Shown here is a 97-nucleotide sequence from Pelomonas sp. HMWF004, a member of the family "Glycine riboswitch aptamer".

RNA sequence: UCCCGCCCGUCAGGAGAGCGCCCCGGUGAAGUUGGGGGCCGCCGAAGGCGCAGGGGGUACGCCCCGAACGCUCAGGCAGAAGGACUGACAAACGUCU
Numbered sequence: 001u002c003c004c005g006c007c008c009g010u011c012a013g014g015a016g017a018g019c020g021c022c023c024c025g026g027u028g029a030a031g032u033u034g035g036g037g038g039c040c041g042c043c044g045a046a047g048g049c050g051c052a053g054g055g056g057g058u059a060c061g062c063c064c065c066g067a068a069c070g071c072u073c074a075g076g077c078a079g080a081a082g083g084a085c086u087g088a089c090a091a092a093c094g095u096c097u
Stems, first nucleotide, its partner, number of pairs: 009089005020039004041077003044073002048071003054064002

Gene Ontology term of the family: glycine biosynthetic process.